Annotation:
Rfam assigns this 225-nucleotide sequence to the family "RT-2 RNA".

RNA sequence: UACUGCCAGACCGAGUAGGCCAGCGGGCCGAAAGCAGAGCGCGGAGAGGAAGGAGGGCGCGACCAUCGGGCGCGAGCCCGUAAAUACGCACCCCGCGAGGGUGGCCGGACGCUGCUUGCAUGGCGCGGCGCUCCGUGGCUUCGCCGCGUUUCAUGGCCAUACCUCAAGCGGCUGUCAGAGCCACAUUGCAAGCCGUGCGGGGUGCCUUCUAUGAACUCGGAGCAA
Number, nucleotide and partner (000 for none) at each position: 001u000002a000003c000004u041005g040006c039007c000008a000009g000010a000011c000012c000013g000014a000015g000016u000017a000018g000019g028020c027021c000022a000023g000024c000025g000026g000027g020028c019029c000030g000031a000032a000033a000034g000035c000036a000037g000038a000039g006040c005041g004042c000043g000044g000045a000046g000047a000048g000049g000050a000051a000052g000053g000054a000055g000056g000057g000058c000059g000060c000061g000062a000063c000064c000065a000066u000067c080068g079069g078070g077071c000072g000073c000074g000075a000076g000077c070078c069079c068080g067081u000082a000083a000084a000085u000086a000087c000088g205089c204090a203091c202092c201093c200094c199095g198096c000097g000098a000099g163100g162101g000102u159103g158104g157105c156106c155107g000108g000109a000110c000111g119112c118113u000114g000115c000116u000117u000118g112119c111120a000121u000122g150123g149124c148125g147126c146127g145128g144129c143130g142131c000132u000133c000134c000135g000136u000137g000138g000139c000140u000141u000142c130143g129144c128145c127146g126147c125148g124149u123150u122151u000152c000153a000154u000155g106156g105157c104158c103159a102160u000161a000162c100163c099164u000165c000166a000167a000168g196169c195170g194171g193172c192173u000174g000175u000176c000177a000178g000179a000180g000181c000182c000183a000184c000185a000186u000187u000188g000189c000190a000191a000192g172193c171194c170195g169196u168197g000198c095199g094200g093201g092202g091203u090204g089205c088206c000207u000208u000209c000210u000211a000212u000213g000214a000215a000216c000217u000218c000219g000220g000221a000222g000223c000224a000225a000